[Rfam]
DUF805b RNA: a 35-nucleotide sequence from Tenuifilum thalassicum. NCBI's taxonomy places the organism under Bacteria, Pseudomonadati, Bacteroidota, Bacteroidales, Tenuifilum. It is annotated as a cis-regulatory element.
RNA sequence: UCAGAGGAAGCCGAAAAUCAUUAAUAGAGUAGGCA
Numbered sequence: 001u002c003a004g005a006g007g008a009a010g011c012c013g014a015a016a017a018u019c020a021u022u023a024a025u026a027g028a029g030u031a032g033g034c035a
Stems, first nucleotide, its partner, number of pairs: 004019002010034003